[Rfam]
RNA sequence: AAUGCCCCACAACGGCUUCCUGGCGUGGGGUGAUAUUUUCCAAUGGAGCA
Number, nucleotide and partner (000 for none) at each position: 001a000002a000003u000004g031005c030006c029007c028008c027009a026010c025011a000012a000013c022014g021015g049016c048017u047018u000019c046020c045021u014022g013023g000024c000025g010026u009027g008028g007029g006030g005031u004032g000033a000034u000035a000036u000037u000038u000039u000040c000041c000042a000043a000044u000045g020046g019047a017048g016049c015050a000

Shown here is a 50-nucleotide sequence from Roseicyclus persicicus, a member of the family "SAM/SAH riboswitch aptamer".
A search with the family's covariance model found it, with a score of 61 bits.
Its family is annotated with S-adenosylmethionine metabolic process and regulation of gene expression in the Gene Ontology.